Shown here is a 75-nucleotide sequence from Turnera subulata, a member of the family "Small nucleolar RNA Z155". Pairs were carried over by alignment from the consensus structure. For this family Rfam cites "The high diversity of snoRNAs in plants: identification and comparative study of 120 snoRNA genes from Oryza sativa" (Chen et al., Nucleic Acids Res, 2003). Taxonomically the source falls in Turnera (Eukaryota, Streptophyta, Pentapetalae, fabids).
RNA sequence: CAAUGAUGUGAUGAUAACCUUGUCGGAAAAUACGAUGUCGACUUAAAAAUUCAGACUACAAUUAUCUGAUCAAUG
Numbered sequence: 001c002a003a004u005g006a007u008g009u010g011a012u013g014a015u016a017a018c019c020u021u022g023u024c025g026g027a028a029a030a031u032a033c034g035a036u037g038u039c040g041a042c043u044u045a046a047a048a049a050u051u052c053a054g055a056c057u058a059c060a061a062u063u064a065u066c067u068g069a070u071c072a073a074u075g
Stems, first nucleotide, its partner, number of pairs: 001075002004072003